Record summary
ilvH RNA: a 68-nucleotide sequence from Comamonas kerstersii. It scores 92 bits against the family's covariance model. NCBI's taxonomy places the organism under Bacteria, Betaproteobacteria, Burkholderiales, Comamonadaceae, Comamonas.

RNA sequence: GACGAAUCUAUUGUCCACCAAGCCCGCAGCUUACCGGUUGCGGGGGAGGGUGGCGAAAAGAGGAAUCU
Number, nucleotide and partner (000 for none) at each position: 001g000002a000003c000004g000005a000006a000007u000008c000009u000010a000011u056012u055013g054014u000015c053016c052017a051018c050019c049020a000021a000022g000023c044024c043025c042026g041027c040028a039029g038030c037031u036032u000033a000034c000035c000036g031037g030038u029039u028040g027041c026042g025043g024044g023045g000046g000047a000048g000049g019050g018051u017052g016053g015054c013055g012056a011057a000058a000059a000060g000061a000062g000063g000064a000065a000066u000067c000068u000